The record is an 84-nucleotide sequence from Sporosarcina sp. JAI121, which matches "c-di-GMP-I riboswitch aptamer" in Rfam. The base pairs follow the family's consensus structure, which is taken from published work.

[Rfam]
RNA sequence: UAUUGAAAAAGGCAAAAUUAUCGAAAGGUAAUGACGCAAAACCACAGGUCUAAAGCAUUGAGCUACGAUGGCUGGGUUGCCGGA
Numbered sequence: 001u002a003u004u005g006a007a008a009a010a011g012g013c014a015a016a017a018u019u020a021u022c023g024a025a026a027g028g029u030a031a032u033g034a035c036g037c038a039a040a041a042c043c044a045c046a047g048g049u050c051u052a053a054a055g056c057a058u059u060g061a062g063c064u065a066c067g068a069u070g071g072c073u074g075g076g077u078u079g080c081c082g083g084a
Stems, first nucleotide, its partner, number of pairs: 012037002017032006040078004045074003048069003055063002